[Rfam]
The record is a 102-nucleotide RNA from Streptococcus parauberis, which matches "Streptococcus sRNA SpF25" in Rfam. It is one of the family's seed sequences. A reference for the family is Mann et al. (2012), "Control of virulence by small RNAs in Streptococcus pneumoniae", PLoS Pathog. Rfam 15.1 lists 60 matches to the family in 29 species.
RNA sequence: GCAUGAGGUAGCCUUUCUAAAGUGUUUUUAGACAAUUCUAUUUUAUCAAGACUAUCGCAACCAUGCAAAAAGCAACGGCAAAAACCGUUGCUUUUUUGUUAU
Numbered sequence: 001g002c003a004u005g006a007g008g009u010a011g012c013c014u015u016u017c018u019a020a021a022g023u024g025u026u027u028u029u030a031g032a033c034a035a036u037u038c039u040a041u042u043u044u045a046u047c048a049a050g051a052c053u054a055u056c057g058c059a060a061c062c063a064u065g066c067a068a069a070a071a072g073c074a075a076c077g078g079c080a081a082a083a084a085c086c087g088u089u090g091c092u093u094u095u096u097u098g099u100u101a102u
Base pairs, nucleotide, nucleotide: 004059005058007056008055009054010053011052016051017050018049023048024047026045029040030039031038032037063102064101065100066098067097068096069095070094071093072091073090074089075088076087077086078085